[Rfam]
RNA sequence: CAUCGGCUGCGGGCCCCUCUGGCGAGCUGCGCUUCUCGCGCCUCGUGAUGUCGGAGCCGAUGC
Numbered sequence: 001c002a003u004c005g006g007c008u009g010c011g012g013g014c015c016c017c018u019c020u021g022g023c024g025a026g027c028u029g030c031g032c033u034u035c036u037c038g039c040g041c042c043u044c045g046u047g048a049u050g051u052c053g054g055a056g057c058c059g060a061u062g063c
Stems, first nucleotide, its partner, number of pairs: 006057003010053003022046005029041003